RNA sequence: UGGUCAGGCGCAGUGGUUCUUACCUAUUCCUCCUUCAGGCAGGCAGACCAGAACGCAAUCACUAGAGUUCCCAAAAUAUUUGGUUAACAUGUUUGUGUAAUCAGAAAUUACAAUACCCUGAUGGCUCCUAUCUGAU
Dot-bracket structure: .......................((..((..((....))..)).))............................((.((.(....)..)).))...((.(((((.............))))).))...........
Numbered sequence: 001u002g003g004u005c006a007g008g009c010g011c012a013g014u015g016g017u018u019c020u021u022a023c024c025u026a027u028u029c030c031u032c033c034u035u036c037a038g039g040c041a042g043g044c045a046g047a048c049c050a051g052a053a054c055g056c057a058a059u060c061a062c063u064a065g066a067g068u069u070c071c072c073a074a075a076a077u078a079u080u081u082g083g084u085u086a087a088c089a090u091g092u093u094u095g096u097g098u099a100a101u102c103a104g105a106a107a108u109u110a111c112a113a114u115a116c117c118c119u120g121a122u123g124g125c126u127c128c129u130a131u132c133u134g135a136u
Stems, first nucleotide, its partner, number of pairs: 024046002028043002032039002075093002078090002081086001097125002100122005